[Rfam]
RNA: Pseudomonas sRNA P26
RNA sequence: UUACUUAAUUUCUUAGCCUUUAUGGCUAUGGGCUGGUGGCUAAAAAGCCACCGGCCC
Numbered sequence: 001u002u003a004c005u006u007a008a009u010u011u012c013u014u015a016g017c018c019u020u021u022a023u024g025g026c027u028a029u030g031g032g033c034u035g036g037u038g039g040c041u042a043a044a045a046a047g048c049c050a051c052c053g054g055c056c057c
Base pairs, nucleotide, nucleotide: 014028015027016026017025018024031056032055033054034053035052036051037050038049039048040047